[Rfam]
RNA sequence: CAGGUGCAACAGGUAGUUGCUGGUGACAUUUGUGUCACGAGAGGAAAGUCCGGGCUGCAAGUGAGACAGGACUCCAUCUAACGGAUGGCCAGAGUAAUCUGAGGGCAAGUGCAACAGAAAGUAAACCGCCAGACUUUGUUUGGUAAGGGUGAAAGGGUGGGGCAAGAGCCCACCGGUGAGUGUGGUAACACGCUCAGCCAGGUAAACCCUGUCCGCAGCAAGAAGUAUAUGGUAUAAGUCUCACAAGCCGUUCAGUCGGCACUCAUACUUCGCUCGAGCCUGCUGGCAACAACAGGCCUAGAUAAAUAACUACCCAAUGACAGAACCCGGCUUAUCGUUGCACCUAUUAU
Numbered sequence: 001c002a003g004g005u006g007c008a009a010c011a012g013g014u015a016g017u018u019g020c021u022g023g024u025g026a027c028a029u030u031u032g033u034g035u036c037a038c039g040a041g042a043g044g045a046a047a048g049u050c051c052g053g054g055c056u057g058c059a060a061g062u063g064a065g066a067c068a069g070g071a072c073u074c075c076a077u078c079u080a081a082c083g084g085a086u087g088g089c090c091a092g093a094g095u096a097a098u099c100u101g102a103g104g105g106c107a108a109g110u111g112c113a114a115c116a117g118a119a120a121g122u123a124a125a126c127c128g129c130c131a132g133a134c135u136u137u138g139u140u141u142g143g144u145a146a147g148g149g150u151g152a153a154a155g156g157g158u159g160g161g162g163c164a165a166g167a168g169c170c171c172a173c174c175g176g177u178g179a180g181u182g183u184g185g186u187a188a189c190a191c192g193c194u195c196a197g198c199c200a201g202g203u204a205a206a207c208c209c210u211g212u213c214c215g216c217a218g219c220a221a222g223a224a225g226u227a228u229a230u231g232g233u234a235u236a237a238g239u240c241u242c243a244c245a246a247g248c249c250g251u252u253c254a255g256u257c258g259g260c261a262c263u264c265a266u267a268c269u270u271c272g273c274u275c276g277a278g279c280c281u282g283c284u285g286g287c288a289a290c291a292a293c294a295g296g297c298c299u300a301g302a303u304a305a306a307u308a309a310c311u312a313c314c315c316a317a318u319g320a321c322a323g324a325a326c327c328c329g330g331c332u333u334a335u336c337g338u339u340g341c342a343c344c345u346a347u348u349a350u
Base pairs, nucleotide, nucleotide: 002345003344004343005342006341007340008339009338010337011335012314013313014312015311016310017309018308020041021040023038024037025036026035027034028033046333047332048331050330051329052328053327054326055218056217057216058215069214070213071212072211074088075087076086077085078084089103090101091100092099093098104209105208109207110206111203112202126148127147128144129143130142131141132140133139134138156174157173158172159171160170161169176198177196178195179194180193181192182191183190184189222271223270224269225268232262247260248259249258250257278297279296280295281294282293284291285290
RNA: Bacterial RNase P class A
Organism: Sulfurovum sp. NBC37-1